RNA sequence: AAAAUACAGAGGUAAACUCAUUGAAAAAUGAGGGCACAAAGCUACAAGUCUAAGGGCAGGAAAAAGGUAAAAUACGAAUCUCUUGCUUAGGAUGGUUGAGUUGCAUUU
Numbered sequence: 001a002a003a004a005u006a007c008a009g010a011g012g013u014a015a016a017c018u019c020a021u022u023g024a025a026a027a028a029u030g031a032g033g034g035c036a037c038a039a040a041g042c043u044a045c046a047a048g049u050c051u052a053a054g055g056g057c058a059g060g061a062a063a064a065a066g067g068u069a070a071a072a073u074a075c076g077a078a079u080c081u082c083u084u085g086c087u088u089a090g091g092a093u094g095g096u097u098g099a100g101u102u103g104c105a106u107u108u
Base pairs, nucleotide, nucleotide: 012037013036017032018031019030020029021028022027040102041101042100043099045098046097047096048093049092050091055087056086057085058084059083060082061081
Dot-bracket structure: ...........((...((((((....))))))...))..((((.((((((....(((((((...................)))))))...)))..)))))))......